[Rfam]
RNA sequence: UGGUCAUCAGUUCACCAAGGCGUCGCCAACCCUGUCUCAGGGUCCGCUAAACCUGAUA
Numbered sequence: 001u002g003g004u005c006a007u008c009a010g011u012u013c014a015c016c017a018a019g020g021c022g023u024c025g026c027c028a029a030c031c032c033u034g035u036c037u038c039a040g041g042g043u044c045c046g047c048u049a050a051a052c053c054u055g056a057u058a
Stems, first nucleotide, its partner, number of pairs: 001017004029043006
RNA: COG3860 RNA
Organism: Yoonia litorea